[Rfam]
RNA sequence: AAAUGUAGCAUACUAUAAGUAUACCUAGCACAUCAAAAGUAUACUAAGUACACUACGUUUUC
Numbered sequence: 001a002a003a004u005g006u007a008g009c010a011u012a013c014u015a016u017a018a019g020u021a022u023a024c025c026u027a028g029c030a031c032a033u034c035a036a037a038a039g040u041a042u043a044c045u046a047a048g049u050a051c052a053c054u055a056c057g058u059u060u061u062c
Stems, first nucleotide, its partner, number of pairs: 001060008012049003018045007

mir-728 microRNA precursor family: a 62-nucleotide sequence from Acipenser ruthenus.
Pairs were carried over by alignment from the consensus structure, which was predicted with RNAalifold.
Gene Ontology terms of the family: miRNA-mediated post-transcriptional gene silencing and RISC complex.